[Rfam]
RNA sequence: GUAACUUUGAGGUUACAUCUGAAGGACACGAGACAACAAAACUUGGUACUGACGAACAGAAAUCAUAUAAAGGAGCAUAAUUACUUGGGUAAGCAAGCACAUCAUUGUAACGCCCAAAAAAAUACUAAAAGGGUAAUUAUUAGAUGCCAUUACCUAGAGAGAUCUCUAU
Numbered sequence: 001g002u003a004a005c006u007u008u009g010a011g012g013u014u015a016c017a018u019c020u021g022a023a024g025g026a027c028a029c030g031a032g033a034c035a036a037c038a039a040a041a042c043u044u045g046g047u048a049c050u051g052a053c054g055a056a057c058a059g060a061a062a063u064c065a066u067a068u069a070a071a072g073g074a075g076c077a078u079a080a081u082u083a084c085u086u087g088g089g090u091a092a093g094c095a096a097g098c099a100c101a102u103c104a105u106u107g108u109a110a111c112g113c114c115c116a117a118a119a120a121a122a123u124a125c126u127a128a129a130a131g132g133g134u135a136a137u138u139a140u141u142a143g144a145u146g147c148c149a150u151u152a153c154c155u156a157g158a159g160a161g162a163u164c165u166c167u168a169u
Base pairs, nucleotide, nucleotide: 001016002015003014004013005012006011030169032167042157043156045154046153047152048151050149051148064146065145068144077140078139080137081136082135083134084133085132086131087115088114089113090112093108094107095106096105